Shown here is a 69-nucleotide RNA sequence, a member of the family "Transposase-2 RNA". Rfam 15.1 lists 214 matches to the family in 110 species. Pairs were carried over by alignment from the consensus structure, which is taken from published work.

RNA sequence: GAAACGCGAACCAAGCGGCGGUGUGAGCCGUGUGAGAUUUGGAGCUGGUCUUGGCGACGAGGUCAUGCG
Numbered sequence: 001g002a003a004a005c006g007c008g009a010a011c012c013a014a015g016c017g018g019c020g021g022u023g024u025g026a027g028c029c030g031u032g033u034g035a036g037a038u039u040u041g042g043a044g045c046u047g048g049u050c051u052u053g054g055c056g057a058c059g060a061g062g063u064c065a066u067g068c069g
Base pairs, nucleotide, nucleotide: 011042012041013040014039015038018031019030020029021028022027046065047064048063049062050061051060052059053058